Small nucleolar RNA SNORA51: a 131-nucleotide RNA from Panthera leo. A search with the family's covariance model found it, with a score of 125 bits. Its family is annotated with nucleolus and RNA processing in the Gene Ontology. ACA51 is a member of the H/ACA class of snoRNA that guide the sites of modification of uridines to pseudouridines. Taxonomically the source falls in Panthera (Eukaryota, Metazoa, Bilateria, Theria).

RNA sequence: AGCCUCCUGGUGCUUACCACAGGCUGUGUUCUUACACUGACUGUACAGAAAGAGAAGGCAGAAUAAACCUACCCAUAUAUACCCCAGCCCAGGCCCUUUGCCUGGUCUGUGUUGUGAAUGGAGGUCGAAGA
Number, nucleotide and partner (000 for none) at each position: 001a000002g059003c058004c057005u056006c000007c054008u053009g000010g000011u000012g000013c000014u000015u000016a000017c000018c000019a000020c043021a042022g041023g000024c000025u000026g037027u036028g035029u034030u000031c000032u000033u000034a029035c028036a027037c026038u000039g000040a000041c022042u021043g020044u000045a000046c000047a000048g000049a000050a000051a000052g000053a008054g007055a000056a005057g004058g003059c002060a000061g000062a000063a000064u000065a000066a000067a000068c000069c000070u000071a000072c123073c121074c120075a119076u118077a000078u000079a000080u000081a000082c000083c000084c000085c109086a108087g107088c000089c105090c104091a103092g102093g101094c100095c000096c000097u000098u000099u000100g094101c093102c092103u091104g090105g089106u000107c087108u086109g085110u000111g000112u000113u000114g000115u000116g000117a000118a076119u075120g074121g073122a000123g072124g000125u000126c000127g000128a000129a000130g000131a000